[Rfam]
RNA: Nuclear RNase P
RNA sequence: GUGGUUGGAGGCUGAUUGCAGAGGGCACAUGUGCCAACCACUUCAGGAAAAACCUGAGCAACACGAGCCAAAAACCACCCCAGCAGGGCAGCACCCCAUGAGGGUGACAUGAGCUGCCCCACUGGAGAAGCCAGAGGGCGCCACUGGUGGAUGUGAUGCUCCAUGGCCUGAAAUCACCUGCAAAAUAUGAGGUGGAGCACAACACCAAAACCCAACCCAGACCACUCUCCACCCAC
Number, nucleotide and partner (000 for none) at each position: 001g236002u235003g234004g233005u000006u000007g230008g229009a228010g000011g000012c191013u190014g000015a188016u187017u000018g000019c000020a000021g044022a043023g042024g041025g034026c033027a032028c000029a000030u000031g000032u027033g026034c025035c000036a000037a000038c000039c000040a000041c024042u023043u022044c021045a000046g000047g000048a000049a000050a000051a000052a000053c000054c220055u219056g218057a000058g216059c000060a000061a000062c000063a000064c000065g000066a000067g167068c166069c165070a000071a000072a000073a000074a000075c000076c000077a000078c088079c087080c086081c000082a000083g000084c000085a000086g080087g079088g078089c000090a000091g000092c106093a105094c104095c103096c102097c000098a000099u000100g000101a000102g096103g095104g094105u093106g092107a000108c000109a000110u000111g000112a000113g000114c000115u000116g000117c000118c000119c000120c000121a000122c000123u163124g162125g161126a160127g159128a000129a157130g000131c000132c000133a000134g000135a000136g000137g000138g000139c000140g000141c150142c149143a000144c000145u000146g000147g000148u000149g142150g141151a000152u000153g000154u000155g000156a000157u129158g000159c127160u126161c125162c124163a123164u000165g069166g068167c067168c000169u000170g000171a000172a000173a000174u000175c000176a000177c000178c000179u000180g000181c000182a000183a000184a000185a000186u000187a016188u015189g000190a013191g012192g000193u207194g206195g205196a000197g203198c000199a000200c000201a000202a000203c197204a000205c195206c194207a193208a000209a000210a000211c000212c000213c000214a000215a000216c058217c000218c056219a055220g054221a000222c000223c000224a000225c000226u000227c000228u009229c008230c007231a000232c000233c004234c003235a002236c001